A member of the RNA family "c-di-AMP riboswitch aptamer (ydaO/yuaA leader)" from Rudaeicoccus suwonensis, 140 nucleotides long.
The base pairs follow the family's consensus structure.
NCBI's taxonomy places the organism under Bacteria, Actinomycetota, Actinomycetes, Dermacoccaceae, Rudaeicoccus.
A search with the family's covariance model found it, with a score of 60 bits.

RNA sequence: CACCACAGGGCGUUGAGGAGGGCGGGGGAACCACUUUCGGCGCCGCAUUCGGCGCCUUGGGGUCAAGCCGGCAUCCACCGGCCGAGCACCUGACAGCUCGAACCCGACAGCUCACCCCGCAGACGUUCGUCAGGAAAGGA
Dot-bracket structure: ..((...............))((((((....((........................))(((.....((((......))))..((((........))))...))).........))))))....................
Numbered sequence: 001c002a003c004c005a006c007a008g009g010g011c012g013u014u015g016a017g018g019a020g021g022g023c024g025g026g027g028g029a030a031c032c033a034c035u036u037u038c039g040g041c042g043c044c045g046c047a048u049u050c051g052g053c054g055c056c057u058u059g060g061g062g063u064c065a066a067g068c069c070g071g072c073a074u075c076c077a078c079c080g081g082c083c084g085a086g087c088a089c090c091u092g093a094c095a096g097c098u099c100g101a102a103c104c105c106g107a108c109a110g111c112u113c114a115c116c117c118c119g120c121a122g123a124c125g126u127u128c129g130u131c132a133g134g135a136a137a138g139g140a
Stems, first nucleotide, its partner, number of pairs: 003021002022120006032059002060105003068081004084099004